The record is a 353-nucleotide RNA from Bagarius yarrelli, which matches "Vertebrate telomerase RNA" in Rfam. From the family's description: Telomerase is a ribonucleoprotein reverse transcriptase that synthesises telomeric DNA. Telomerase RNAs differ greatly in sequence and structure between vertebrates, ciliates and yeasts, but they share a 5' pseudoknot structure close to the template sequence. Vertebrate telomerase RNAs have a 3' H/ACA snoRNA-like domain. Pairs were carried over by alignment from the consensus structure, which is taken from published work. The source organism's lineage runs through Eukaryota, Bilateria, Actinopterygii, Actinopteri and Bagarius.
RNA sequence: AACGUUAGAGAGCAGACCACCUAACCCUAGGUUAAUAAUACUUCCUGUCCGGUGAAGUUACUGUUUUGUAUCCAGCUUUCAGUAAGUAACAGGAAGUUUUCCGUGCCGCUCCGGUUGUAAAUUUGUUUAAAAACAAAUUUAAAAAAAAAAGCUUGGAAUUGCUCUCUGGCGCUCAGUGUCUCCGGUUCGAGCAUGUGUGUUGUGGACAGCCAGGCUGCCGCUAAGAGGUUCACCUCUGUCGCACUGCGCUUGAGCGCGGAGGAUGAUCACACUGAGCAGAUGAAACUGAGCAUGGCUGCACUCUGCGAGUCCCUCCAGUGAUUUAUGCAGAACUAGCCUUAGCUCAAACACAU
Numbered sequence: 001a002a003c004g005u006u007a008g009a010g011a012g013c014a015g016a017c018c019a020c021c022u023a024a025c026c027c028u029a030g031g032u033u034a035a036u037a038a039u040a041c042u043u044c045c046u047g048u049c050c051g052g053u054g055a056a057g058u059u060a061c062u063g064u065u066u067u068g069u070a071u072c073c074a075g076c077u078u079u080c081a082g083u084a085a086g087u088a089a090c091a092g093g094a095a096g097u098u099u100u101c102c103g104u105g106c107c108g109c110u111c112c113g114g115u116u117g118u119a120a121a122u123u124u125g126u127u128u129a130a131a132a133a134c135a136a137a138u139u140u141a142a143a144a145a146a147a148a149a150a151g152c153u154u155g156g157a158a159u160u161g162c163u164c165u166c167u168g169g170c171g172c173u174c175a176g177u178g179u180c181u182c183c184g185g186u187u188c189g190a191g192c193a194u195g196u197g198u199g200u201u202g203u204g205g206a207c208a209g210c211c212a213g214g215c216u217g218c219c220g221c222u223a224a225g226a227g228g229u230u231c232a233c234c235u236c237u238g239u240c241g242c243a244c245u246g247c248g249c250u251u252g253a254g255c256g257c258g259g260a261g262g263a264u265g266a267u268c269a270c271a272c273u274g275a276g277c278a279g280a281u282g283a284a285a286c287u288g289a290g291c292a293u294g295g296c297u298g299c300a301c302u303c304u305g306c307g308a309g310u311c312c313c314u315c316c317a318g319u320g321a322u323u324u325a326u327g328c329a330g331a332a333c334u335a336g337c338c339u340u341a342g343c344u345c346a347a348a349c350a351c352a353u
Base pairs, nucleotide, nucleotide: 005169006168007167008166009165010164011163012162013161014160015159041096042095043094044093045092056087058085059084060083061082062081063080072151077145078144079143172276173275174274175273176272177271178270185255186254187253188252189251190250191249195244196243197242198241202221203220204219205218207217208216209215210214224237225236226235227234288345289344290343291342292340294338295337296336297335298334303330304329305328306327307326308323309322310321311320

The family is grouped with related families in Rfam's "Telomerase clan". The match comes from Rfam's covariance-model search (78 bits).